[Rfam]
RNA sequence: UUACUCUGGUUUCUCUUCAAUUGUCGAAUAAAUCUUUCGCCUUUUACUAAAGAUUUCCGUGGAGAGGAACACUCUAAUGAGUCUAAACAUAAUUUUUGUUUAGAGCCCCGCAGGCGUUU
Numbered sequence: 001u002u003a004c005u006c007u008g009g010u011u012u013c014u015c016u017u018c019a020a021u022u023g024u025c026g027a028a029u030a031a032a033u034c035u036u037u038c039g040c041c042u043u044u045u046a047c048u049a050a051a052g053a054u055u056u057c058c059g060u061g062g063a064g065a066g067g068a069a070c071a072c073u074c075u076a077a078u079g080a081g082u083c084u085a086a087a088c089a090u091a092a093u094u095u096u097u098g099u100u101u102a103g104a105g106c107c108c109c110g111c112a113g114g115c116g117u118u119u
Stems, first nucleotide, its partner, number of pairs: 003082004009070011030056008102118002105115003
The record is a 119-nucleotide RNA from Drosophila erecta, which matches "U5 spliceosomal RNA" in Rfam. Pairs were carried over by alignment from the consensus structure, which is taken from published work. Rfam classes the family as a spliceosomal small nuclear RNA. On this family, see Thomas et al., Nucleic Acids Res 1990: "The spliceosomal snRNAs of Caenorhabditis elegans".